[Rfam]
RNA sequence: GAGCUGACUCACUCUAAGCUCGAACACCAAGCCCUGAAGUUUGCAUCGUUUGGUGUUCUACCUUACAGUGAGUGGGCUU
Dot-bracket structure: ......(((((((.(((.......((((((((...............)))))))).......))).)))))))......

The family of this 79-nucleotide RNA from Nezara viridula is "mir-971 microRNA precursor family". The family's consensus secondary structure was predicted with RNAalifold. Gene Ontology terms of the family: miRNA-mediated post-transcriptional gene silencing and RISC complex. NCBI's taxonomy places the organism under Eukaryota, Protostomia, Dicondylia, Heteroptera, Nezara.